The family of this 72-nucleotide sequence from Enterococcus aquimarinus is "L17 ribosomal protein downstream element".
Nucleotides: 072
Base pairs, nucleotide, nucleotide: 002041003040004039005038011035012034013033017030018029019028020027021026050072051071052070053069054068055067056066057065058064
Number, partner (000 for none) and nucleotide at each position: 001000a002041g003040a004039g005038u006000g007000u008000u009000a010000u011035g012034a013033u014000g015000u016000u017030g018029g019028a020027a021026g022000g023000c024000a025000a026021c027020u028019u029018c030017c031000g032000a033013g034012u035011c036000u037000a038005g039004c040003u041002c042000g043000u044000c045000g046000c047000u048000g049000g050072c051071c052070c053069c054068u055067u056066g057065g058064u059000u060000u061000u062000u063000a064058a065057u066056c067055a068054a069053g070052g071051g072050g
Pairs were carried over by alignment from the consensus structure, which is taken from published work.